[Rfam]
RNA sequence: UACUAAGAGCAGAUGGGGAAUGCCUAGGCGAUAACCGGCGAUGAAGGACGUGGAAGACUGCGAAAAGCUACGGUUAGCUGUCAACAAGCGUUGAUCCGUAGAUGUCCGAAUGGGGCAACCCGGCGGGGUUAAUACUCCGUCACUGAGUAAUCAGAGCGAACCCGGGGAAGUGAAACAUCUCAGUACCCGGAGGAAGAGAAAGUAAAAACGAUUCCGUAAGUAGCGGUGAGCGAACGCGGAACAGCCUAAACCAAGUUUCGGCUUGGGGUUGUGGGGCCCGCAUACGAUAUGAUGGAUGAUAGUAGAAGUGUCUGGAAAGGCACGCCAUAGAGAGUGACAGUCUCGUAUACGAAAUCAGAAAUCAGUCAGCGGUGUCCCCGAGUAUCACGGGGAACGUGGAGCCUUGUGAGAAUCUGGGAGGACCACCUCCUAAGGCUAAAUACGAGUUAUCGACCGAUAGUGAACUAGUACCGUGAGGGAAAGGUGAAAAGAACCCCUGUUAGGGGAGUGAAAUAGAACCUGAAACCAUCUGCUUACAAG
Dot-bracket structure: ......((((((((((.....(((..(((((((((((((......((((((........))).....((((((...(((.......)))......))))))...)))....(((....)))(((((((......))))))).((((....)))).))...((((((.....((....))......))))).).........((....))..((((((.....((.....))....)))))..((((....((((((....))))))......(((..((((........((((...((((.(((...(((((......)))))..(...).(((.......)))...)))...))))...))))....))))....))).....((((((((.........))))))))......(((((......)))))..))))..)..)).))))))).))...............((....))....)).........((((.....)))).............).....)))))))))).....
Rfam assigns this 540-nucleotide part of an RNA from Denitrovibrio acetiphilus to the family "Bacterial large subunit ribosomal RNA". Lineage of the source: Bacteria > Deferribacterota > Geovibrionaceae > Denitrovibrio > Denitrovibrio acetiphilus. The family is grouped with related families in Rfam's "LSU clan". It is one of the family's seed sequences.